[Rfam]
The record is a 76-nucleotide RNA sequence from Camellia sinensis, which matches "Small nucleolar RNA Z105" in Rfam. Lineage of the source: Eukaryota > Streptophyta > Euphyllophyta > Magnoliopsida > Camellia. Rfam 15.1 lists 621 matches to the family in 204 species. The family's RNA type in Rfam is C/D-box small nucleolar RNA. On this family, see Chen et al., Nucleic Acids Res 2003: "The high diversity of snoRNAs in plants: identification and comparative study of 120 snoRNA genes from Oryza sativa".
RNA sequence: AGGGCAUAAUGAUGAAGAAAGUAUAUUUUGGUCUGAAGUUUAGUGAUUGAAUCAAUUUACCUCCUACUCAUUCUGA
Dot-bracket structure: .....((.(...................((((..................)))).............).)).....